[Rfam]
RNA sequence: ACAACAUUCGUACCGUCGUUCUACCGAGCAAUAUCACCCGCUCGCUGGAAGAUCUUUCCUCCGUCGU
Numbered sequence: 001a002c003a004a005c006a007u008u009c010g011u012a013c014c015g016u017c018g019u020u021c022u023a024c025c026g027a028g029c030a031a032u033a034u035c036a037c038c039c040g041c042u043c044g045c046u047g048g049a050a051g052a053u054c055u056u057u058c059c060u061c062c063g064u065c066g067u
Base pairs, nucleotide, nucleotide: 004064005063010058012056015053016052017051020049021048022047023046025044026043027042028041029040

Notes: mir-2774 microRNA precursor family: a 67-nucleotide RNA from Bombyx mori. It scores 78 bits against the family's covariance model. For this family Rfam cites "MicroRNAs of Bombyx mori identified by Solexa sequencing" (Liu et al., BMC Genomics, 2010). NCBI's taxonomy places the organism under Eukaryota, Eumetazoa, Bombycoidea, Bombycidae, Bombyx.